[Rfam]
The family of this 84-nucleotide RNA from Salinispora tropica is "ZMP/ZTP riboswitch aptamer (pfl RNA motif)".
RNA sequence: UGGAAACGAUGCGACUGGCGGCACCGAGGAUGGAACGACCAUCGGGGAGCUCGUCGCGGAGGGUCGACCGCCUGGGCCUUUCCG
Numbered sequence: 001u002g003g004a005a006a007c008g009a010u011g012c013g014a015c016u017g018g019c020g021g022c023a024c025c026g027a028g029g030a031u032g033g034a035a036c037g038a039c040c041a042u043c044g045g046g047g048a049g050c051u052c053g054u055c056g057c058g059g060a061g062g063g064u065c066g067a068c069c070g071c072c073u074g075g076g077c078c079u080u081u082c083c084g
Stems, first nucleotide, its partner, number of pairs: 003057001006054004011050002015046002017072005030042004061079005
Rfam links the family to the GO terms one-carbon metabolic process and regulation of purine nucleotide biosynthetic process. A reference for the family is Trausch et al. (2015), "Metal Ion-Mediated Nucleobase Recognition by the ZTP Riboswitch", Chem Biol. Rfam's curators put it in the seed alignment.